[Rfam]
RNA sequence: GCAGACUCACUCAGCAUCCAGCAGGUGCUUUUUCUGCCUGCCAGUGAGCAUUCCAGAGGGCUGUGACCAUUUUGGCCUCUCUAGGGUGAUGUAGCUGCCUGGGGACACAGAG
Numbered sequence: 001g002c003a004g005a006c007u008c009a010c011u012c013a014g015c016a017u018c019c020a021g022c023a024g025g026u027g028c029u030u031u032u033u034c035u036g037c038c039u040g041c042c043a044g045u046g047a048g049c050a051u052u053c054c055a056g057a058g059g060g061c062u063g064u065g066a067c068c069a070u071u072u073u074g075g076c077c078u079c080u081c082u083a084g085g086g087u088g089a090u091g092u093a094g095c096u097g098c099c100u101g102g103g104g105a106c107a108c109a110g111a112g
Stems, first nucleotide, its partner, number of pairs: 001041004006036001014028005052103005060095006068088005
This 112-nucleotide sequence from Piliocolobus tephrosceles belongs to the Rfam family "Small nucleolar RNA SNORA77".
The family's RNA type in Rfam is H/ACA-box small nucleolar RNA.
Rfam's curators write: ACA63 (SNORA77) is a member of the H/ACA class of snoRNAs that guide the sites of modification of uridines to pseudouridines. This snoRNA was identified by computational screening and its expression in mouse experimentally verified by Northern blot and primer extension analysis. ACA63 is proposed to guide the pseudouridylation of 18S rRNA U814.
On this family, see Schattner et al., RNA 2006: "A computational screen for mammalian pseudouridylation guide H/ACA RNAs".
Rfam 15.1 lists 843 matches to the family in 607 species.
It scores 76 bits against the family's covariance model.
Lineage of the source: Eukaryota > Metazoa > Haplorrhini > Cercopithecidae > Piliocolobus.